The record is a 122-nucleotide RNA sequence from Rhizobium giardinii, which matches "Alphaproteobacterial ar14" in Rfam. About the family: Smr14C2 was renamed NfeR1 (Nodule Formation Efficiency RNA) highly expressed in salt stress and during the symbiotic interaction on legume roots. By type it is a small RNA. The literature on the family includes a 2012 paper in RNA Biol by del Val et al., "A survey of sRNA families in alpha-proteobacteria". The family has 118 seed sequences and 784 matches in Rfam 15.1.
Nucleotides: 122
Stems, first nucleotide, its partner, number of pairs: 008037002011034002015030003044078006051071003086117011
Number, partner (000 for none) and nucleotide at each position: 001000g002000a003000u004000g005000c006000c007000g008037g009036a010000c011034g012033c013000a014000a015030u016029g017028c018000a019000c020000c021000u022000c023000c024000u025000c026000c027000c028017g029016c030015a031000a032000a033012g034011c035000u036009u037008c038000g039000u040000g041000u042000u043000u044078c045077a046076g047075g048074c049073g050000a051071c052070c053069c054000a055000u056000u057000c058000c059000c060000c061000c062000u063000c064000c065000c066000a067000a068000g069053g070052g071051g072000g073049c074048g075047c076046c077045u078044g079000a080000c081000g082000g083000a084000a085000a086117a087116a088115g089114c090113c091112u092111g093110u094109c095108g096107c097000a098000c099000c100000u101000u102000c103000u104000c105000c106000c107096g108095c109094g110093g111092c112091g113090g114089g115088c116087u117086u118000u119000u120000u121000c122000g